[Rfam]
RNA sequence: GGCACUCUGGAAAGCAGGGCAGCGCAGGCUGUCUUCACCGACGGGGUAAGUCGAGCCCAUUGCCAGAUGGGAGCGGCGAAAUCUCUCAGGUCCCAAUGACAGAGGGGGCAUU
Number, nucleotide and partner (000 for none) at each position: 001g000002g000003c106004a000005c104006u103007c102008u101009g100010g000011a000012a000013a000014g000015c000016a035017g034018g033019g032020c031021a030022g000023c000024g000025c000026a000027g000028g000029c000030u021031g020032u019033c018034u017035u016036c000037a091038c090039c089040g087041a086042c000043g000044g085045g084046g083047u000048a000049a000050g000051u000052c000053g000054a000055g000056c000057c000058c000059a000060u000061u000062g000063c000064c000065a000066g000067a000068u000069g000070g000071g000072a000073g000074c000075g000076g000077c000078g000079a000080a000081a000082u000083c046084u045085c044086u041087c040088a000089g039090g038091u037092c000093c000094c000095a000096a000097u000098g000099a000100c009101a008102g007103a006104g005105g000106g003107g000108g000109c000110a000111u000112u000